Shown here is a 179-nucleotide RNA sequence from Mesobacillus zeae, a member of the family "Lysine riboswitch aptamer". A search with the family's covariance model found it, with a score of 113 bits. From the family's description: Riboswitches are metabolite binding domains within certain messenger RNAs that serve as precision sensors for their corresponding targets.
RNA sequence: AGAUGAGGUAGAGGUCGCGGUAUUUAUCAGUAGAAUAAUGGAGAGUCUGGGAACUCGAUGAAGUUAUUUGAAAGGAACUAUCGCCGAAGCGCUGUGUGUCUCUGCAUACAGCAGCUGGGACUGUUGCCGAAAGGUGCAGGACUGUCAUGGCUGAGAAGCCAUGAUGAACUAUCCGUUCU
Numbered sequence: 001a002g003a004u005g006a007g008g009u010a011g012a013g014g015u016c017g018c019g020g021u022a023u024u025u026a027u028c029a030g031u032a033g034a035a036u037a038a039u040g041g042a043g044a045g046u047c048u049g050g051g052a053a054c055u056c057g058a059u060g061a062a063g064u065u066a067u068u069u070g071a072a073a074g075g076a077a078c079u080a081u082c083g084c085c086g087a088a089g090c091g092c093u094g095u096g097u098g099u100c101u102c103u104g105c106a107u108a109c110a111g112c113a114g115c116u117g118g119g120a121c122u123g124u125u126g127c128c129g130a131a132a133g134g135u136g137c138a139g140g141a142c143u144g145u146c147a148u149g150g151c152u153g154a155g156a157a158g159c160c161a162u163g164a165u166g167a168a169c170u171a172u173c174c175g176u177u178c179u
Stems, first nucleotide, its partner, number of pairs: 007173005017084006024077002033069007088116003091112008117143002121139004127133001145164007